[Rfam]
RNA: mir-9193 microRNA precursor family
RNA sequence: UCAGGGGCGGAGGGAUCCCUCAGCCAGAUUGCAAGAGGGCGCAGGCCAGGCUGAGGGACCCCACCAGUACAUG
Numbered sequence: 001u002c003a004g005g006g007g008c009g010g011a012g013g014g015a016u017c018c019c020u021c022a023g024c025c026a027g028a029u030u031g032c033a034a035g036a037g038g039g040c041g042c043a044g045g046c047c048a049g050g051c052u053g054a055g056g057g058a059c060c061c062c063a064c065c066a067g068u069a070c071a072u073g
Base pairs, nucleotide, nucleotide: 004070006068009065010064012062013061014060016058017057018056019055020054021053022052023051024050025049027046029044030043031042032041